This 97-nucleotide RNA from Xanthobacter tagetidis belongs to the Rfam family "rpsB sRNA".
NCBI's taxonomy places the organism under Bacteria, Pseudomonadati, Pseudomonadota, Hyphomicrobiales, Xanthobacter.
The family's consensus secondary structure is taken from published work.
By type it is a small RNA.
RNA sequence: CGCACGCGGACAAACGGCCAAUUCGGCCAUCCGGUGCCUUCGUCCCCGACGGGUCGAGGGUACGUCCGCGGAGGCUCAACCGGAGAAUACCAAAGUG
Numbered sequence: 001c002g003c004a005c006g007c008g009g010a011c012a013a014a015c016g017g018c019c020a021a022u023u024c025g026g027c028c029a030u031c032c033g034g035u036g037c038c039u040u041c042g043u044c045c046c047c048g049a050c051g052g053g054u055c056g057a058g059g060g061u062a063c064g065u066c067c068g069c070g071g072a073g074g075c076u077c078a079a080c081c082g083g084a085g086a087a088u089a090c091c092a093a094a095g096u097g
Base pairs, nucleotide, nucleotide: 001073003071005070006069007068008067009066010065011064016028017027018026019025036061037060038059039058040057041056